Description
A member of the RNA family "Mammalian CPEB3 ribozyme" from Crocodylus porosus, 77 nucleotides long. The mammalian CPEB3 ribozyme is a self cleaving RNA located in the second intron of the CPEB3 gene which belongs to a family of genes regulating messenger RNA polyadenylation.
RNA sequence: UUGGUAUUUGUUAGGGUAUGAACAGAAGUGCUCACAGCACGGCCCUGUCAGAUUCCAACAAAUCUGUGAAUUCUGCC
Numbered sequence: 001u002u003g004g005u006a007u008u009u010g011u012u013a014g015g016g017u018a019u020g021a022a023c024a025g026a027a028g029u030g031c032u033c034a035c036a037g038c039a040c041g042g043c044c045c046u047g048u049c050a051g052a053u054u055c056c057a058a059c060a061a062a063u064c065u066g067u068g069a070a071u072u073c074u075g076c077c
Stems, first nucleotide, its partner, number of pairs: 014045004023075005028040003049066006
Dot-bracket structure: .............[[[[.....((((((((.......))).]]]]...((((((......))))))....)))))..
Notes
It scores 44 bits against the family's covariance model.